[Rfam]
Nucleotides: 105
Base pairs, nucleotide, nucleotide: 002104004102005101006100007099008098009097010096
Number, partner (000 for none) and nucleotide at each position: 001000c002104u003000u004102u005101u006100g007099c008098a009097a010096g011000a012000a013000u014000g015000a016000u017000g018000a019000u020000u021000c022000a023000a024000u025000u026000a027000g028000a029000u030000g031000g032000g033000u034000g035000a036000a037000a038000a039000g040000g041000a042000g043000c044000a045000u046000a047000a048000a049000a050000a051000c052000u053000c054000c055000u056000u057000u058000u059000a060000u061000g062000a063000a064000c065000u066000c067000a068000a069000a070000u071000a072000u073000u074000u075000g076000a077000g078000g079000c080000a081000u082000u083000u084000g085000g086000a087000a088000c089000u090000g091000u092000c093000u094000g095000a096010c097009u098008u099007g100006c101005a102004g103000c104002a105000a
A member of the RNA family "Small nucleolar RNA Z266" from Cannabis sativa, 105 nucleotides long. Lineage of the source: Eukaryota > Embryophyta > Tracheophyta > eudicotyledons > Cannabis. Rfam classes the family as a C/D-box small nucleolar RNA. The family's consensus secondary structure was predicted with PFOLD. The family has 11 seed sequences and 719 matches in Rfam 15.1. A search with the family's covariance model found it, with a score of 67 bits.